The record is a 118-nucleotide sequence from Peterkaempfera bronchialis, which matches "Glycine riboswitch aptamer" in Rfam. It scores 58 bits against the family's covariance model. The base pairs follow the family's consensus structure.

RNA sequence: CGAACCCGCGCGGGAGAGCCCGACCGUCCGAACCCGACUCCGUCGGGGCGGCCGACGUCGGCGCCGAAGGAGCAACUCCUCCCCGGAAUCUCUCAGGCACAGCUACCGCGCGGGCGAG
Numbered sequence: 001c002g003a004a005c006c007c008g009c010g011c012g013g014g015a016g017a018g019c020c021c022g023a024c025c026g027u028c029c030g031a032a033c034c035c036g037a038c039u040c041c042g043u044c045g046g047g048g049c050g051g052c053c054g055a056c057g058u059c060g061g062c063g064c065c066g067a068a069g070g071a072g073c074a075a076c077u078c079c080u081c082c083c084c085g086g087a088a089u090c091u092c093u094c095a096g097g098c099a100c101a102g103c104u105a106c107c108g109c110g111c112g113g114g115c116g117a118g
Stems, first nucleotide, its partner, number of pairs: 006113008020061004063098003066094002070092003076086002